Rfam assigns this 108-nucleotide RNA from Kitasatospora cheerisanensis to the family "ZMP/ZTP riboswitch aptamer (pfl RNA motif)".
Its family is annotated with one-carbon metabolic process and regulation of purine nucleotide biosynthetic process in the Gene Ontology.
Lineage of the source: Bacteria > Bacillati > Actinomycetes > Kitasatospora > Kitasatospora cheerisanensis.
[Rfam]
RNA sequence: GCGGUGAGCCGUGACUGGCGCGCUGGGAUGGACUUCACCAUCGGGGAGCGGCUCCGCUCGGGACCUUCGGGUUCCGAGGUGCUGUAGCCGAGCGCCUGGGCCGUCCGA
Numbered sequence: 001g002c003g004g005u006g007a008g009c010c011g012u013g014a015c016u017g018g019c020g021c022g023c024u025g026g027g028a029u030g031g032a033c034u035u036c037a038c039c040a041u042c043g044g045g046g047a048g049c050g051g052c053u054c055c056g057c058u059c060g061g062g063a064c065c066u067u068c069g070g071g072u073u074c075c076g077a078g079g080u081g082c083u084g085u086a087g088c089c090g091a092g093c094g095c096c097u098g099g100g101c102c103g104u105c106c107g108a
Stems, first nucleotide, its partner, number of pairs: 003057001006054007015045002017096005028041004085103001087101003